RNA: MIR7502 microRNA precursor family
Organism: Gossypium aridum
RNA sequence: UAUUAAAAGUUCAUUCAUCUCUAUUGUUAAAAACUGAUAUGUUUUUUUAUGGAAAAACCAGAUAGUUAUACAUGGUCUGCCAUGUAUAUCUUAUGCUAACGUACAUGGACCAAUUUUUAAUGGUAGUAAUGAAUGAAAUUUUUAAGA
Numbered sequence: 001u002a003u004u005a006a007a008a009g010u011u012c013a014u015u016c017a018u019c020u021c022u023a024u025u026g027u028u029a030a031a032a033a034c035u036g037a038u039a040u041g042u043u044u045u046u047u048u049a050u051g052g053a054a055a056a057a058c059c060a061g062a063u064a065g066u067u068a069u070a071c072a073u074g075g076u077c078u079g080c081c082a083u084g085u086a087u088a089u090c091u092u093a094u095g096c097u098a099a100c101g102u103a104c105a106u107g108g109a110c111c112a113a114u115u116u117u118u119a120a121u122g123g124u125a126g127u128a129a130u131g132a133a134u135g136a137a138a139u140u141u142u143u144a145a146g147a
Stems, first nucleotide, its partner, number of pairs: 003145007010137006017130002021126005027120006